RNA: U4 spliceosomal RNA
RNA sequence: AUCCUAGUGCAUGGGUCUUUUCCUGCUCUGUGAAGCAAUAAGCUGAGAGAGGAAUUAUGCUUAUUGAAAAUUUCUUAUUCUUUCACUAAAGCGACCAACUCCAUACUGGGUGCGCCUGGUAUGGGAAUUUUUUGGAACCUUUUUUA
Dot-bracket structure: ...................(((((.(((.....(((.....)))..)))))))).............................................(((((((((((....)))))))).)))....................